[Rfam]
Nucleotides: 083
Base pairs, nucleotide, nucleotide: 001083002082003081004080
Number, partner (000 for none) and nucleotide at each position: 001083g002082c003081a004080a005000a006000g007000u008000g009000a010000u011000g012000a013000u014000g015000a016000g017000a018000a019000a020000a021000a022000c023000g024000u025000c026000u027000g028000u029000c030000a031000a032000u033000c034000c035000a036000c037000u038000g039000a040000c041000a042000a043000u044000u045000u046000a047000u048000g049000a050000u051000g052000u053000c054000u055000c056000g057000u058000u059000u060000u061000a062000u063000a064000u065000c066000c067000c068000a069000a070000c071000a072000g073000g074000u075000u076000c077000u078000g079000a080004u081003u082002g083001c
This 83-nucleotide RNA sequence from Amborella trichopoda belongs to the Rfam family "Small nucleolar RNA snoR14". The family has 7 seed sequences and 668 matches in Rfam 15.1. The source organism's lineage runs through Eukaryota, Streptophytina, Spermatophyta, Magnoliopsida and Amborella.